A member of the RNA family "Glutamine-II riboswitch aptamer", 62 nucleotides long. On this family, see Huang et al., Nucleic Acids Res 2019: "Structure and ligand binding of the glutamine-II riboswitch". The sequence is in the family's curated seed alignment. The family's consensus secondary structure is taken from published work.
RNA sequence: CUACGUUCAGUCAGCACUCGUGUUGACCGCAGUUCGACUCAGGCCAUGGAACGGGGACCUGA
Numbered sequence: 001c002u003a004c005g006u007u008c009a010g011u012c013a014g015c016a017c018u019c020g021u022g023u024u025g026a027c028c029g030c031a032g033u034u035c036g037a038c039u040c041a042g043g044c045c046a047u048g049g050a051a052c053g054g055g056g057a058c059c060u061g062a
Base pairs, nucleotide, nucleotide: 004053005052006051007050008049010027011026012025013024014023039062040061041060042059043058044056045055